[Rfam]
RNA sequence: GGUUGAUCGGCCCCGGCUCGCCCCCCGAGGCCGGGUUACGACGGCUCGCACAUCCCCCCGAGGUGCGGGCCGUCUCUU
Number, nucleotide and partner (000 for none) at each position: 001g000002g039003u038004u000005g036006a000007u034008c033009g032010g031011c030012c029013c000014c000015g000016g000017c000018u000019c000020g000021c000022c000023c000024c000025c000026c000027g000028a000029g012030g011031c010032c009033g008034g007035g000036u005037u000038a003039c002040g074041a073042c072043g071044g070045c069046u068047c067048g066049c065050a064051c063052a000053u000054c000055c000056c000057c000058c000059c000060g000061a000062g000063g051064u050065g049066c048067g047068g046069g045070c044071c043072g042073u041074c040075u000076c000077u000078u000